[Rfam]
RNA sequence: UCAGUUCUCUUUGCCUUUUGGCUUUGAUCAGAACGAAGUAUCUGUUCUAUACAGUUUAAUCGCUGUUUUCGGGGCCUACGGGCCUCAUCACGAUUAAUCUAGUUUUUGGCAAUCGCCGGGAAGGCGCUCUGGGCUUGCUUAUUCCCCUCCUGGCACCGUGUCGCUCGUAUUUGCACUAUCUCGGGCUGAUGCGAACCAUG
Numbered sequence: 001u002c003a004g005u006u007c008u009c010u011u012u013g014c015c016u017u018u019u020g021g022c023u024u025u026g027a028u029c030a031g032a033a034c035g036a037a038g039u040a041u042c043u044g045u046u047c048u049a050u051a052c053a054g055u056u057u058a059a060u061c062g063c064u065g066u067u068u069u070c071g072g073g074g075c076c077u078a079c080g081g082g083c084c085u086c087a088u089c090a091c092g093a094u095u096a097a098u099c100u101a102g103u104u105u106u107u108g109g110c111a112a113u114c115g116c117c118g119g120g121a122a123g124g125c126g127c128u129c130u131g132g133g134c135u136u137g138c139u140u141a142u143u144c145c146c147c148u149c150c151u152g153g154c155a156c157c158g159u160g161u162c163g164c165u166c167g168u169a170u171u172u173g174c175a176c177u178a179u180c181u182c183g184g185g186c187u188g189a190u191g192c193g194a195a196c197c198a199u200g
Stems, first nucleotide, its partner, number of pairs: 008027002013022003049068001051066004071086006115154007130141004157193006164185004
This 200-nucleotide RNA from Lineolata rhizophorae belongs to the Rfam family "U2 spliceosomal RNA". From the family's description: U2 is a small nuclear RNA (snRNA) component of the spliceosome (involved in pre-mRNA splicing). Complementary binding between U2 snRNA (in an area lying towards the 5' end but 3' to hairpin I) and the branchpoint sequence (BPS) of the intron results the bulging out of an unpaired adenosine, on the BPS, which initiates a nucleophilic attack at the intronic 5' splice site, thus starting the first of two transesterification reactions that mediate splicing. The family is grouped with related families in Rfam's "U2 clan". By type it is a spliceosomal small nuclear RNA. It scores 102 bits against the family's covariance model. On this family, see Thomas et al., Nucleic Acids Res 1990: "The spliceosomal snRNAs of Caenorhabditis elegans".